[Rfam]
RNA sequence: GGUCAUGAGAGCCAGCGUCAAGCCCAAGCUUGCUGGCCGGCAACCCUCCAACCGCGGUGGGGUGCCCUUGGUGAGGACCUGGUCCGGCGCGUGGGGCGCCGGUCAAGCGCGGGCC
Dot-bracket structure: ((((....(.((((((....((......)).)))))))(((..(((.((......))..))).))).........))))..(.(((((((.....))))))).)...........

The record is a 115-nucleotide RNA sequence from Lentzea albidocapillata, which matches "SAM (S-adenosyl methionine) riboswitch aptamer" in Rfam. The literature on the family includes a 2008 paper in RNA by Weinberg et al., "The aptamer core of SAM-IV riboswitches mimics the ligand-binding site of SAM-I riboswitches". About the family: SAM-IV is a mRNA element that regulates gene expression via direct sensing of S-adenosylmethionine (SAM or AdoMet). SAM-IV riboswitches share conserved nucleotide positions with the previously described SAM-I riboswitches sequence analysis and molecular recognition experiments suggest that SAM-I and SAM-IV riboswitches share similar ligand binding sites, but have different scaffolds.